[Rfam]
A member of the RNA family "Guanidine-II riboswitch aptamer (mini-ykkC)" from Vibrio astriarenae, 50 nucleotides long. It scores 38 bits against the family's covariance model. The literature on the family includes a 2007 paper in Nucleic Acids Res by Weinberg et al., "Identification of 22 candidate structured RNAs in bacteria using the CMfinder comparative genomics pipeline". The source organism's lineage runs through Bacteria, Pseudomonadota, Vibrionales, Vibrionaceae and Vibrio.
Nucleotides: 050
Base pairs, nucleotide, nucleotide: 002019003018005016006015007014008013037050038049039048040047041046
Number, partner (000 for none) and nucleotide at each position: 001000a002019g003018c004000a005016a006015g007014g008013g009000a010000c011000g012000a013008c014007c015006c016005u017000a018003g019002u020000g021000a022000a023000u024000g025000c026000u027000c028000u029000u030000a031000u032000u033000u034000u035000u036000g037050c038049c039048g040047g041046g042000a043000c044000g045000a046041c047040c048039c049038g050037g